[Rfam]
RNA sequence: AUGCAUAUGAUGAAUUAACUCGGAUUCCCCUUCAAGACAUAUUGGGUGAUGUAAAAUCGAGUUUCUGAUGCA
Number, nucleotide and partner (000 for none) at each position: 001a000002u072003g071004c070005a069006u000007a000008u000009g000010a000011u000012g000013a000014a000015u000016u000017a000018a000019c000020u000021c000022g000023g000024a000025u000026u000027c000028c000029c000030c000031u000032u000033c000034a000035a000036g000037a000038c000039a000040u000041a000042u000043u000044g000045g000046g000047u000048g000049a000050u000051g000052u000053a000054a000055a000056a000057u000058c000059g000060a000061g000062u000063u000064u000065c000066u000067g000068a000069u005070g004071c003072a002
RNA: Small nucleolar RNA snoR60
Organism: Populus trichocarpa